Description:
The record is an 81-nucleotide RNA from Myotis myotis, which matches "mir-574 microRNA precursor family" in Rfam. Its Rfam clan is "mir-574 microRNA precursor clan". A reference for the family is Nielsen et al. (2010), "MicroRNA identity and abundance in porcine skeletal muscles determined by deep sequencing", Anim Genet. The base pairs follow the family's consensus structure, which was predicted with RNAalifold.

RNA sequence: AGGCCUGCAGAAAGAGAGGCAGGAUCUGAUCCCCAGCCUCCAUGGAAGCUGUUGAUCAGCCAUUGCCUCUCUUUCUCUCCU
Numbered sequence: 001a002g003g004c005c006u007g008c009a010g011a012a013a014g015a016g017a018g019g020c021a022g023g024a025u026c027u028g029a030u031c032c033c034c035a036g037c038c039u040c041c042a043u044g045g046a047a048g049c050u051g052u053u054g055a056u057c058a059g060c061c062a063u064u065g066c067c068u069c070u071c072u073u074u075c076u077c078u079c080c081u
Base pairs, nucleotide, nucleotide: 010075011074012073013072014071015070016069017068018067019066020065021064022063026059027058028057029056030055031054034051035050036049037048